[Rfam]
RNA sequence: AGACCAUCUCGAGCGACAGAGAGACCUGGCUCAAUGAAGUCGCAGCAACCCUUCGCGUCAUCGCGUGAGGGUGCUACCGCCAGGAUCGAUGGAGG
Numbered sequence: 001a002g003a004c005c006a007u008c009u010c011g012a013g014c015g016a017c018a019g020a021g022a023g024a025c026c027u028g029g030c031u032c033a034a035u036g037a038a039g040u041c042g043c044a045g046c047a048a049c050c051c052u053u054c055g056c057g058u059c060a061u062c063g064c065g066u067g068a069g070g071g072u073g074c075u076a077c078c079g080c081c082a083g084g085a086u087c088g089a090u091g092g093a094g095g
Base pairs, nucleotide, nucleotide: 004092005091006090007089008088013043014042015041016040017039021032022031023030026083027082028081029080044075045074046073047072049071050070052067054065055064079087

A member of the RNA family "SAM riboswitch aptamer (S box leader)" from Rhodococcus sp. AD45, 95 nucleotides long. Rfam's curators write: The SAM riboswitch is found upstream of a number of genes which code for proteins involved in methionine or cysteine biosynthesis in Gram-positive bacteria.